mir-33 microRNA precursor family: a 75-nucleotide sequence from Scaptodrosophila lebanonensis. Rfam 15.1 lists 1,467 matches to the family in 815 species. The family's consensus secondary structure was predicted with PFOLD. A reference for the family is Li et al. (2009), "Direct sequencing and expression analysis of a large number of miRNAs in Aedes aegypti and a multi-species survey of novel mosquito miRNAs", BMC Genomics. Taxonomically the source falls in Scaptodrosophila (Eukaryota, Bilateria, Eumetabola, Acalyptratae).

[Rfam]
RNA sequence: CGCAGGUGCAUUGUAGUCGCAUUGUCUGUGUGCUCCCAAUAUGAUUCAGGCAAUACAACUGCAAAGCAAGCUAUG
Numbered sequence: 001c002g003c004a005g006g007u008g009c010a011u012u013g014u015a016g017u018c019g020c021a022u023u024g025u026c027u028g029u030g031u032g033c034u035c036c037c038a039a040u041a042u043g044a045u046u047c048a049g050g051c052a053a054u055a056c057a058a059c060u061g062c063a064a065a066g067c068a069a070g071c072u073a074u075g
Base pairs, nucleotide, nucleotide: 001075002074004072006071007068008067009066011064012063013062014061015060016059019056021054022053023052024051025050026049027048